About this RNA
Shown here is an 89-nucleotide RNA from Candidatus Scalindua japonica, a member of the family "Group II catalytic intron D1-D4-1". Taxonomically the source falls in Candidatus Scalindua (Bacteria, Pseudomonadati, Candidatus Brocadiia, Candidatus Scalinduaceae). A reference for the family is Bonen and Vogel (2001), "The ins and outs of group II introns", Trends Genet. Rfam links the family to the GO term Group II intron splicing. A search with the family's covariance model found it, with a score of 53 bits. Pairs were carried over by alignment from the consensus structure.

Nucleotides: 089
Stems, first nucleotide, its partner, number of pairs: 001026002004023002007020005039046002048089002057082004062077001
Number, partner (000 for none) and nucleotide at each position: 001026u002025g003000c004023a005022a006000u007020u008019u009018g010017a011016g012000g013000u014000a015000a016011c017010u018009c019008a020007g021000c022005u023004u024000g025002u026001g027000a028000c029000c030000g031000g032000a033000a034000a035000g036000a037000a038000g039046u040045c041000a042000g043000c044000a045040g046039a047000a048089g049088g050000c051000a052000u053000a054000g055000u056000a057082g058081g059080c060079a061000u062077u063000u064000u065000u066000u067000u068000u069000a070000a071000u072000u073000u074000u075000u076000a077062a078000u079060u080059g081058c082057u083000g084000a085000a086000g087000a088049c089048c